[Rfam]
RNA sequence: ACAAGAAAGAAGAAGUUAUUCGCUUCUCACCUUACGAACAAGCAUGCUUCUGUAAGGUUAAUAUAAACAAAGGUUUAUUAUUUUGUGAUGAAGCGAAUCUUUUUAUUGAUUCGUUUUUUUAAUUUUAU
Numbered sequence: 001a002c003a004a005g006a007a008a009g010a011a012g013a014a015g016u017u018a019u020u021c022g023c024u025u026c027u028c029a030c031c032u033u034a035c036g037a038a039c040a041a042g043c044a045u046g047c048u049u050c051u052g053u054a055a056g057g058u059u060a061a062u063a064u065a066a067a068c069a070a071a072g073g074u075u076u077a078u079u080a081u082u083u084u085g086u087g088a089u090g091a092a093g094c095g096a097a098u099c100u101u102u103u104u105a106u107u108g109a110u111u112c113g114u115u116u117u118u119u120u121a122a123u124u125u126u127a128u
Stems, first nucleotide, its partner, number of pairs: 011027006029058003038053003041049002092115008

This 128-nucleotide sequence from Acetivibrio saccincola belongs to the Rfam family "Ribosomal protein L20 leader". The family's RNA type in Rfam is cis-regulatory leader. Its family is annotated with regulation of gene expression in the Gene Ontology. Lineage of the source: Bacteria > Bacillota > Acetivibrionales > Acetivibrionaceae > Acetivibrio. This family is a putative r-protein leader autoregulatory structure found in B. subtilis and other low-GC Gram-positive bacteria. It is located in the 5' untranslated regions of mRNAs encoding initiation factor 3 followed by ribosomal proteins L35 and L20 (infC-rpmI-rplT). A Rho-independent transcription terminator structure that is probably involved in regulation is included at the 3' end. The family's consensus secondary structure was predicted with CMfinder. On this family, see Zengel and Lindahl, Prog Nucleic Acid Res Mol Biol 1994: "Diverse mechanisms for regulating ribosomal protein synthesis in Escherichia coli".